[Rfam]
RNA sequence: CAAUCGACAAGGCAAACCAUCUCCGAAAGGAUGGGACGCAAAGCCAAGGGUCUAAACGGCGCGGGAGACGCCGUACGAUCGCCUGGUUACCGAA
Numbered sequence: 001c002a003a004u005c006g007a008c009a010a011g012g013c014a015a016a017c018c019a020u021c022u023c024c025g026a027a028a029g030g031a032u033g034g035g036a037c038g039c040a041a042a043g044c045c046a047a048g049g050g051u052c053u054a055a056a057c058g059g060c061g062c063g064g065g066a067g068a069c070g071c072c073g074u075a076c077g078a079u080c081g082c083c084u085g086g087u088u089a090c091c092g093a094a
Stems, first nucleotide, its partner, number of pairs: 012039002017034004023030002042088004047084003050079003057073004
This 94-nucleotide RNA from a Fimbriimonadaceae bacterium belongs to the Rfam family "c-di-GMP-I riboswitch aptamer". The match comes from Rfam's covariance-model search (72 bits). From the family's description: GEMM was predicted in a large-scale screen for bacterial structured RNA regulatory elements.